RNA sequence: CACCUCACUUAUAAGCCGGGGGACUAGCUCAAUGUUAUGUUCACUAGUAAAUUGCGAGGUAGAUUAAAGAGACAACCAGACACCGAGAAUAUUUUGAUGUUUUCGGUCACUUUGUGUGUCCCACAAAC
Numbered sequence: 001c002a003c004c005u006c007a008c009u010u011a012u013a014a015g016c017c018g019g020g021g022g023a024c025u026a027g028c029u030c031a032a033u034g035u036u037a038u039g040u041u042c043a044c045u046a047g048u049a050a051a052u053u054g055c056g057a058g059g060u061a062g063a064u065u066a067a068a069g070a071g072a073c074a075a076c077c078a079g080a081c082a083c084c085g086a087g088a089a090u091a092u093u094u095u096g097a098u099g100u101u102u103u104c105g106g107u108c109a110c111u112u113u114g115u116g117u118g119u120c121c122c123a124c125a126a127a128c
Base pairs, nucleotide, nucleotide: 002060003059004058005057006056008054015048016047019044021042022041023040024039025037026036027035028034069122071120072119073118074117077114078113079112080111082107083106084105085104086103087102088101089100090099091098092097
This 128-nucleotide sequence from Caenorhabditis brenneri belongs to the Rfam family "Caenorhabditis snoRNA ceN101".
The family has 4 seed sequences and 19 matches in Rfam 15.1.
Its family is annotated with nucleolus and RNA processing in the Gene Ontology.
It scores 132 bits against the family's covariance model.